RNA: mir-135 microRNA precursor family
Organism: Ameiurus melas
RNA sequence: UUCCCUGUGUAAUGAAUGACUUCAAAUCUAUGUAAAUAUACGAAUAUUUACAUAGAUUUGAAGUCAUUUAUUACACUGGGAA
Numbered sequence: 001u002u003c004c005c006u007g008u009g010u011a012a013u014g015a016a017u018g019a020c021u022u023c024a025a026a027u028c029u030a031u032g033u034a035a036a037u038a039u040a041c042g043a044a045u046a047u048u049u050a051c052a053u054a055g056a057u058u059u060g061a062a063g064u065c066a067u068u069u070a071u072u073a074c075a076c077u078g079g080g081a082a
Base pairs, nucleotide, nucleotide: 002081003080004079005078007076008075009074010073011072012071013070014069015068016067017066018065019064020063021062022061023060024059025058026057027056028055029054030053031052032051033050034049035048